Rfam assigns this 101-nucleotide RNA sequence from Olea europaea to the family "Plastid-rps12 3UTR RNA". Rfam describes the family as follows. Plastid rpl20 is a non-coding RNA (ncRNA) recognised in plastids. It was found in the three prime untranslated region (3UTR) of rps12 gene, its 3UTR location sugest a role in transcript maduration. Pairs were carried over by alignment from the consensus structure, which was predicted with LocARNA. The family's RNA type in Rfam is cis-regulatory element. For this family Rfam cites "Retrograde signaling in plants: A critical review focusing on the GUN pathway and beyond" (Richter et al., Plant Commun, 2023).
RNA sequence: CCUUUUCAUUGGUGCAAAUCUAAUCACUUGAAUUUAAGAUGCGAAGAAACUCUCCAUUGGUUGCAAAUGGUUGGUUAUUCAUUAAGCGGAGAAAAUCUUAU
Numbered sequence: 001c002c003u004u005u006u007c008a009u010u011g012g013u014g015c016a017a018a019u020c021u022a023a024u025c026a027c028u029u030g031a032a033u034u035u036a037a038g039a040u041g042c043g044a045a046g047a048a049a050c051u052c053u054c055c056a057u058u059g060g061u062u063g064c065a066a067a068u069g070g071u072u073g074g075u076u077a078u079u080c081a082u083u084a085a086g087c088g089g090a091g092a093a094a095a096u097c098u099u100a101u
Stems, first nucleotide, its partner, number of pairs: 009023004052091004056082002059079003063075002